[Rfam]
Shown here is a 114-nucleotide RNA sequence from Tetraodon nigroviridis, a member of the family "Small nucleolar RNA SNORD67". Rfam classes the family as a C/D-box small nucleolar RNA. Rfam's curators put it in the seed alignment. Rfam 15.1 lists 781 matches to the family in 618 species.
RNA sequence: UUUGAGAGUGAUGAGUUGCACGAAUCAGUUGGGGCGCUCGGUGCAGUGGCAACGGCGCCCCAGUCCGAGCAGCGCUGAGGACACCCUGGGUGCACAGGGGCCAUCUGACUCAAC
Number, nucleotide and partner (000 for none) at each position: 001u000002u000003u000004g000005a000006g111007a110008g109009u000010g000011a000012u000013g000014a000015g000016u000017u000018g000019c000020a000021c000022g000023a000024a000025u068026c067027a000028g065029u063030u062031g061032g060033g000034g058035c057036g056037c000038u000039c000040g053041g000042u051043g050044c049045a000046g000047u000048g000049g044050c043051a042052a000053c040054g000055g000056c036057g035058c034059c000060c032061c031062a030063g029064u000065c028066c000067g026068a025069g000070c000071a000072g000073c000074g000075c000076u000077g000078a000079g000080g000081a000082c000083a000084c000085c000086c000087u000088g000089g000090g000091u000092g000093c000094a000095c000096a000097g000098g000099g000100g000101c000102c000103a000104u000105c000106u000107g000108a000109c008110u007111c006112a000113a000114c000